The record is an 84-nucleotide RNA from Acyrthosiphon pisum, which matches "mir-3017 microRNA precursor family" in Rfam. The source organism's lineage runs through Eukaryota, Arthropoda, Hemiptera, Macrosiphini and Acyrthosiphon. On this family, see Legeai et al., BMC Genomics 2010: "Bioinformatic prediction, deep sequencing of microRNAs and expression analysis during phenotypic plasticity in the pea aphid, Acyrthosiphon pisum". The family has 2 seed sequences and 58 matches in Rfam 15.1. A search with the family's covariance model found it, with a score of 60 bits.
[Rfam]
RNA sequence: CCGUGUUUGUGACUGACUGGGCUGGCGCCGGACUGGCUGCACGCCGGCUACGGCGCGCCCGCCGGUCGGUCACAGAGCACGGGA
Numbered sequence: 001c002c003g004u005g006u007u008u009g010u011g012a013c014u015g016a017c018u019g020g021g022c023u024g025g026c027g028c029c030g031g032a033c034u035g036g037c038u039g040c041a042c043g044c045c046g047g048c049u050a051c052g053g054c055g056c057g058c059c060c061g062c063c064g065g066u067c068g069g070u071c072a073c074a075g076a077g078c079a080c081g082g083g084a
Stems, first nucleotide, its partner, number of pairs: 001082007008074006015067003020063002024059005